Rfam assigns this 85-nucleotide RNA sequence from Phaseolus vulgaris to the family "Small nucleolar RNA snoR14". Pairs were carried over by alignment from the consensus structure. The literature on the family includes a 2001 paper in RNA by Brown et al., "Multiple snoRNA gene clusters from Arabidopsis". Gene Ontology terms of the family: RNA processing and nucleolus. The family is grouped with related families in Rfam's "SNORD110 clan". It is annotated as a C/D-box small nucleolar RNA. It scores 96 bits against the family's covariance model.
[Rfam]
RNA sequence: GCGAAGUGACGAUAGAAAUUCAUUCGUCUGUCAAUCCGCUGAUAUCUGCGUGAUGUUUAUAUGAAUCCCGACAGGUUCUGAUCGC
Dot-bracket structure: ((((.............................................................................))))